[Rfam]
RNA: Bacterial large subunit ribosomal RNA, nucleotides 2003 to 2589
Organism: Palleronia marisminoris
RNA sequence: CCCGCGGUUAGACGGAAAGACCCCGUGCACCUUUACUACAGCUUCACACUGGCAUCAGGCCAAGCAUGUGCAGGAUAGGUGGUAGGCUUCGAAGCAGGGACGCCAGUUCCUGUGGAGCCAUCCUUGAGAUACCACCCUUGCUUCGCUUGAUGUCUAACCGCGGUCCGUUAUCCGGAUCCGGGACCCUGUGUGGCGGGUAGUUUGACUGGGGCGGUCGCCUCCCAAAGAGUAACGGAGGCGCGCGAAGGUUGGCUCAGAGCGGUCGGAAAUCGCUCGUUGAGUGCAAUGGCAGAAGCCAGCCUGACUGCGAGACUGACAAGUCGAGCAGAGACGAAAGUCGGCCAUAGUGAUCCGGUGGUCCCGAGUGGAAGGGCCAUCGCUCAACGGAUAAAAGGUACGCCGGGGAUAACAGGCUGAUGGUGCCCAAGAGUCCAUAUCGACGGCACCGUUUGGCACCUCGAUGUCGGCUCAUCUCAUCCUGGGGCUGGAGCAGGUCCCAAGGGUACGGCUGUUCGCCGUUUAAAGAGGUACGUGAGCUGGGUUUAGAACGUCGUGAGACAGUUCGGUCCCUAUCUGCCGUGGGUGUA
Numbered sequence: 001c002c003c004g005c006g007g008u009u010a011g012a013c014g015g016a017a018a019g020a021c022c023c024c025g026u027g028c029a030c031c032u033u034u035a036c037u038a039c040a041g042c043u044u045c046a047c048a049c050u051g052g053c054a055u056c057a058g059g060c061c062a063a064g065c066a067u068g069u070g071c072a073g074g075a076u077a078g079g080u081g082g083u084a085g086g087c088u089u090c091g092a093a094g095c096a097g098g099g100a101c102g103c104c105a106g107u108u109c110c111u112g113u114g115g116a117g118c119c120a121u122c123c124u125u126g127a128g129a130u131a132c133c134a135c136c137c138u139u140g141c142u143u144c145g146c147u148u149g150a151u152g153u154c155u156a157a158c159c160g161c162g163g164u165c166c167g168u169u170a171u172c173c174g175g176a177u178c179c180g181g182g183a184c185c186c187u188g189u190g191u192g193g194c195g196g197g198u199a200g201u202u203u204g205a206c207u208g209g210g211g212c213g214g215u216c217g218c219c220u221c222c223c224a225a226a227g228a229g230u231a232a233c234g235g236a237g238g239c240g241c242g243c244g245a246a247g248g249u250u251g252g253c254u255c256a257g258a259g260c261g262g263u264c265g266g267a268a269a270u271c272g273c274u275c276g277u278u279g280a281g282u283g284c285a286a287u288g289g290c291a292g293a294a295g296c297c298a299g300c301c302u303g304a305c306u307g308c309g310a311g312a313c314u315g316a317c318a319a320g321u322c323g324a325g326c327a328g329a330g331a332c333g334a335a336a337g338u339c340g341g342c343c344a345u346a347g348u349g350a351u352c353c354g355g356u357g358g359u360c361c362c363g364a365g366u367g368g369a370a371g372g373g374c375c376a377u378c379g380c381u382c383a384a385c386g387g388a389u390a391a392a393a394g395g396u397a398c399g400c401c402g403g404g405g406a407u408a409a410c411a412g413g414c415u416g417a418u419g420g421u422g423c424c425c426a427a428g429a430g431u432c433c434a435u436a437u438c439g440a441c442g443g444c445a446c447c448g449u450u451u452g453g454c455a456c457c458u459c460g461a462u463g464u465c466g467g468c469u470c471a472u473c474u475c476a477u478c479c480u481g482g483g484g485c486u487g488g489a490g491c492a493g494g495u496c497c498c499a500a501g502g503g504u505a506c507g508g509c510u511g512u513u514c515g516c517c518g519u520u521u522a523a524a525g526a527g528g529u530a531c532g533u534g535a536g537c538u539g540g541g542u543u544u545a546g547a548a549c550g551u552c553g554u555g556a557g558a559c560a561g562u563u564c565g566g567u568c569c570c571u572a573u574c575u576g577c578c579g580u581g582g583g584u585g586u587a
Stems, first nucleotide, its partner, number of pairs: 001583008010575003014570002022404004027400002029396005035201004042193002045190004051154010062143005068137001078136005085119003094113008158181003162178006204216004217239006240385001242342002248300006254280002257275006281290002305328004311322003330339003353379007361372002413454003417451001418448007428438002465540001466538004470532001471529005478503002481498006505519005546564004550559003